Shown here is a 212-nucleotide sequence from Blautia sp. OF03-15BH, a member of the family "Clostridiales-1 RNA".
[Rfam]
RNA sequence: UGAUACCAGUGUCAAAAGGUCAAAAAACUGUUCGUGCUUGCACGAUAAGGCUUUUGAACUUGGGACACGCCAAAUAUGAGGUGCAGAACAUCCAGUGGAUGUUCGUUUUGCACCGACCGAAGCGGAGCGUAGACAGUAGCGAUUUACGCAGUAAAUCAGCGGAUUUCGAAUAUUUGGAGGAUUGCGGAAGCUGCGUAGCAAUCCGGGUAUCA
Dot-bracket structure: (((((((..((((..(((.(((.(((.((.((((((....))))).).)).)))))).)))..))))..((((((((..((....................................................................................))..)))))))).(((((((....(...)...))))))).)))))))
Numbered sequence: 001u002g003a004u005a006c007c008a009g010u011g012u013c014a015a016a017a018g019g020u021c022a023a024a025a026a027a028c029u030g031u032u033c034g035u036g037c038u039u040g041c042a043c044g045a046u047a048a049g050g051c052u053u054u055u056g057a058a059c060u061u062g063g064g065a066c067a068c069g070c071c072a073a074a075u076a077u078g079a080g081g082u083g084c085a086g087a088a089c090a091u092c093c094a095g096u097g098g099a100u101g102u103u104c105g106u107u108u109u110g111c112a113c114c115g116a117c118c119g120a121a122g123c124g125g126a127g128c129g130u131a132g133a134c135a136g137u138a139g140c141g142a143u144u145u146a147c148g149c150a151g152u153a154a155a156u157c158a159g160c161g162g163a164u165u166u167c168g169a170a171u172a173u174u175u176g177g178a179g180g181a182u183u184g185c186g187g188a189a190g191c192u193g194c195g196u197a198g199c200a201a202u203c204c205g206g207g208u209a210u211c212a
Stems, first nucleotide, its partner, number of pairs: 001212007010067004016061003020057003024054003028050002031047001032045005070177008080167002179204007190194001
Notes:
NCBI's taxonomy places the organism under Bacteria, Bacillati, Bacillota, Lachnospirales, Blautia. The base pairs follow the family's consensus structure, which is taken from published work. Rfam classes the family as a small RNA. It scores 80 bits against the family's covariance model.